[Rfam]
RNA sequence: CAUUGGGGAGUAGCCGCUCGAAGUCGUCACUUCGAGGGCCACGUCAACAGACUUGACCGCCGUCGCAACGACAGGUGGUUAUGGCGUGGUCAGCCGCACUCAGGGUGCCAUCCAUGCACCCGGUGACGCGCCUGGCGAGACCGAUGACAACCCACUGCGGAC
Numbered sequence: 001c002a003u004u005g006g007g008g009a010g011u012a013g014c015c016g017c018u019c020g021a022a023g024u025c026g027u028c029a030c031u032u033c034g035a036g037g038g039c040c041a042c043g044u045c046a047a048c049a050g051a052c053u054u055g056a057c058c059g060c061c062g063u064c065g066c067a068a069c070g071a072c073a074g075g076u077g078g079u080u081a082u083g084g085c086g087u088g089g090u091c092a093g094c095c096g097c098a099c100u101c102a103g104g105g106u107g108c109c110a111u112c113c114a115u116g117c118a119c120c121c122g123g124u125g126a127c128g129c130g131c132c133u134g135g136c137g138a139g140a141c142c143g144a145u146g147a148c149a150a151c152c153c154a155c156u157g158c159g160g161a162c
Stems, first nucleotide, its partner, number of pairs: 018035003037091010054081008094160005
RNA: Manganese Mn2+ riboswitch aptamer (yybP-ykoY)